Rfam assigns this 123-nucleotide sequence from Desemzia incerta to the family "FMN riboswitch aptamer (RFN element)". The family's consensus secondary structure is taken from published work.

RNA sequence: AUUCGUCUUCAGGGGCAGGGUGUAAUUCCCGACCGGUGGUAAAGUCCACGAGCCAAAUGUCUUGUUUGGUUGAACUGGUGUAAUUCCAGUACCGACAGUAAAGUCUGGAUAAAGAAGAUGGGG
Numbered sequence: 001a002u003u004c005g006u007c008u009u010c011a012g013g014g015g016c017a018g019g020g021u022g023u024a025a026u027u028c029c030c031g032a033c034c035g036g037u038g039g040u041a042a043a044g045u046c047c048a049c050g051a052g053c054c055a056a057a058u059g060u061c062u063u064g065u066u067u068g069g070u071u072g073a074a075c076u077g078g079u080g081u082a083a084u085u086c087c088a089g090u091a092c093c094g095a096c097a098g099u100a101a102a103g104u105c106u107g108g109a110u111a112a113a114g115a116a117g118a119u120g121g122g123g
Stems, first nucleotide, its partner, number of pairs: 003121008018030003032104002034094002036049004044092002052070003074090005096107003
Background
From the family's description: The RFN element is a highly conserved domain that is found frequently in the 5'-untranslated regions of prokaryotic mRNAs that encode for flavin mononucleotide (FMN) biosynthesis and transport proteins. This element is a metabolite-dependent riboswitch that directly binds FMN in the absence of proteins. In Bacillus subtilis, the riboswitch most likely controls gene expression by causing premature transcription termination within the 5' untranslated region of the ribDEAHT operon and precluding access to the ribosome-binding site of ypaA mRNA.The FMN riboswitch structure, reported in present an FMN-bound six-stem junction, adopts a butterfly-like scaffold, stapled together by opposingly directed but nearly identically folded peripheral domains.